The family of this 117-nucleotide sequence from Zhenpiania hominis is "Molybdenum/Tungsten riboswitch aptamer (Moco RNA motif)". It scores 72 bits against the family's covariance model.
RNA sequence: UAAUUAAAAAAAUUCCGAGUCUGUCCGCCUAAUCCGGAAGGGAUGGCGGCUGACCGAUGGGUGCGGAGGGAAACCUCCGUGCCUCCCGUGUUUGGAAAGGAAUGGUUGCAUCAGGGC
Numbered sequence: 001u002a003a004u005u006a007a008a009a010a011a012a013u014u015c016c017g018a019g020u021c022u023g024u025c026c027g028c029c030u031a032a033u034c035c036g037g038a039a040g041g042g043a044u045g046g047c048g049g050c051u052g053a054c055c056g057a058u059g060g061g062u063g064c065g066g067a068g069g070g071a072a073a074c075c076u077c078c079g080u081g082c083c084u085c086c087c088g089u090g091u092u093u094g095g096a097a098a099g100g101a102a103u104g105g106u107u108g109c110a111u112c113a114g115g116g117c
Stems, first nucleotide, its partner, number of pairs: 003111002012103005019054003023050003027047003033042003059084011085095002

Taxonomically the source falls in Zhenpiania (Bacteria, Bacillati, Bacillota, Clostridia).